[Rfam]
RNA sequence: UUUUUGGUAUGAUGAGACAAACAAAUUCACAGUUAUCCCUGUUUGAACAUUUUUUGUUGAAAAGUUUGUAAUCUGACCCAAAC
Numbered sequence: 001u002u003u004u005u006g007g008u009a010u011g012a013u014g015a016g017a018c019a020a021a022c023a024a025a026u027u028c029a030c031a032g033u034u035a036u037c038c039c040u041g042u043u044u045g046a047a048c049a050u051u052u053u054u055u056g057u058u059g060a061a062a063a064g065u066u067u068g069u070a071a072u073c074u075g076a077c078c079c080a081a082a083c
Stems, first nucleotide, its partner, number of pairs: 002082003006078002
Background
Shown here is an 83-nucleotide RNA from Phtheirospermum japonicum, a member of the family "Small nucleolar RNA R38". Rfam's curators write: snoR38 is a C/D box small nucleolar RNA conserved across yeast, human, Arabidopsis and rice. It is encoded in the intron of elongation factor-1 gamma in both pombe and cerevisiae. snoR38 guides the methylation of 2'-O-ribose sites in 28S rRNA. NCBI's taxonomy places the organism under Eukaryota, Tracheophyta, lamiids, Orobanchaceae, Phtheirospermum. Its family is annotated with nucleolus and RNA processing in the Gene Ontology. The base pairs follow the family's consensus structure, which was predicted with PFOLD. A reference for the family is Bachellerie et al. (1995), "Antisense snoRNAs: a family of nucleolar RNAs with long complementarities to rRNA", Trends Biochem Sci.